[Rfam]
RNA sequence: UCUAUGCUUCCGCGAGAGGUCCCCUCUUUGGGGCCCCAAGCACCAGUUGGUGAAAGGGCUUAGGCCCGCUCUUCCAGCUGGCGCCCGGCGGUUCAGGCGCUUGCGUCUGUGCCAUCGGGGCCCCGACGGGCUACGCCUGUCGGAGGGGUGGCCCACCACCUCGAUCCCGUCCCCUCGAGGAACGACUCGAUGA
Dot-bracket structure: .................((((((((((..(((((((...((.(((((((..((((((((....)).).)).)))))))))).)).(((.(((.((((((....)))))).))).))))))))))(((((((...))))))))))))))..))).....((((((..........)))))).............
Source information:
Rfam assigns this 193-nucleotide RNA to the family "psaA RNA". The sequence is in the family's curated seed alignment.